RNA: terC RNA
RNA sequence: CGCGCGGGCCGGGCCCCUCUGGCGAUGCCGUCGCAUCGUGAUGUCGGACCGCAUCG
Numbered sequence: 001c002g003c004g005c006g007g008g009c010c011g012g013g014c015c016c017c018u019c020u021g022g023c024g025a026u027g028c029c030g031u032c033g034c035a036u037c038g039u040g041a042u043g044u045c046g047g048a049c050c051g052c053a054u055c056g
Stems, first nucleotide, its partner, number of pairs: 006050002009047004022039007